[Rfam]
RNA: mir-986 microRNA precursor family
Organism: Drosophila pseudoobscura
RNA sequence: ACUGAAACAACCCGUCUCGAAUAGCGUUGUGACUGAUGACUGCAUUUGUAAUUUUCUCAGCGGCAGUGCUAUUCCAGUUGGGUUGUUUGCGG
Numbered sequence: 001a002c003u004g005a006a007a008c009a010a011c012c013c014g015u016c017u018c019g020a021a022u023a024g025c026g027u028u029g030u031g032a033c034u035g036a037u038g039a040c041u042g043c044a045u046u047u048g049u050a051a052u053u054u055u056c057u058c059a060g061c062g063g064c065a066g067u068g069c070u071a072u073u074c075c076a077g078u079u080g081g082g083u084u085g086u087u088u089g090c091g092g
Stems, first nucleotide, its partner, number of pairs: 002091001005088004010083003016077002019074007027066004033060004